MIR473 microRNA precursor family: a 76-nucleotide RNA from Manihot esculenta. The literature on the family includes a 2005 paper in Plant Cell by Lu et al., "Novel and mechanical stress-responsive MicroRNAs in Populus trichocarpa that are absent from Arabidopsis". The source organism's lineage runs through Eukaryota, Pentapetalae, rosids, Euphorbiaceae and Manihot. It scores 59 bits against the family's covariance model. Rfam links the family to the GO terms RISC complex and miRNA-mediated post-transcriptional gene silencing.
[Rfam]
RNA sequence: AUUGCUCACUCUCCCUCAAGGGCUUCCAGCGACAUGCAUGACAAGGCUGGAGGUCAUCGGGGAGAGUGGACAAUAU
Number, nucleotide and partner (000 for none) at each position: 001a000002u000003u000004g000005c000006u069007c068008a067009c066010u065011c064012u063013c062014c061015c060016u000017c059018a000019a057020g000021g055022g054023c053024u052025u051026c050027c000028a000029g000030c000031g000032a000033c000034a000035u000036g000037c000038a000039u000040g000041a000042c000043a000044a000045g000046g000047c000048u000049g000050g026051a025052g024053g023054u022055c021056a000057u019058c000059g017060g015061g014062g013063a012064g011065a010066g009067u008068g007069g006070a000071c000072a000073a000074u000075a000076u000